[Rfam]
RNA: SAM riboswitch aptamer (S box leader)
Organism: Macrococcoides bohemicum
RNA sequence: AUUUUAUCAAGAGAGACAGAGGGAUAUGGCCCGAUGAAGUCUCAGCAGCGGACUCUAAUUUAGAGCACUGUGCUAAUUCCAUCAAGCUCACGCUUGGCAGAUAAAUU
Numbered sequence: 001a002u003u004u005u006a007u008c009a010a011g012a013g014a015g016a017c018a019g020a021g022g023g024a025u026a027u028g029g030c031c032c033g034a035u036g037a038a039g040u041c042u043c044a045g046c047a048g049c050g051g052a053c054u055c056u057a058a059u060u061u062a063g064a065g066c067a068c069u070g071u072g073c074u075a076a077u078u079c080c081a082u083c084a085a086g087c088u089c090a091c092g093c094u095u096g097g098c099a100g101a102u103a104a105a106u107u
Base pairs, nucleotide, nucleotide: 001107003105004104005103006102007101008100013043014042015041016040017039021032022031023030026082027081028080029079044074045073046072047071049070050069053065054064055063078099083096084095085094086093087092